Notes:
Streptomyces-metK RNA: a 114-nucleotide RNA sequence from Actinacidiphila reveromycinica. The family's consensus secondary structure is taken from published work. A search with the family's covariance model found it, with a score of 64 bits.
RNA sequence: GCGAGAUGCCUGGUCCGUGCCCGGGACGCUCACGCUAAGCUAGCCGCGGAGCGCCGGGCGCAGCCCUGCGCACUCCACCGAGCUCGAGCCAGCAGCCGCUGCAACCCCAGGGAG
Numbered sequence: 001g002c003g004a005g006a007u008g009c010c011u012g013g014u015c016c017g018u019g020c021c022c023g024g025g026a027c028g029c030u031c032a033c034g035c036u037a038a039g040c041u042a043g044c045c046g047c048g049g050a051g052c053g054c055c056g057g058g059c060g061c062a063g064c065c066c067u068g069c070g071c072a073c074u075c076c077a078c079c080g081a082g083c084u085c086g087a088g089c090c091a092g093c094a095g096c097c098g099c100u101g102c103a104a105c106c107c108c109a110g111g112g113a114g
Stems, first nucleotide, its partner, number of pairs: 048076004053071001057067002090101004